RNA: mir-8/mir-141/mir-200 microRNA precursor family
Organism: Hyalella azteca
RNA sequence: GACCACAUCUUACCGGACAGCAUUAGGCUGUACAUGAACCUAAUACUGUCAGGUAAUGAUGUAAGC
Numbered sequence: 001g002a003c004c005a006c007a008u009c010u011u012a013c014c015g016g017a018c019a020g021c022a023u024u025a026g027g028c029u030g031u032a033c034a035u036g037a038a039c040c041u042a043a044u045a046c047u048g049u050c051a052g053g054u055a056a057u058g059a060u061g062u063a064a065g066c
Stems, first nucleotide, its partner, number of pairs: 005062005010056005016050005022044006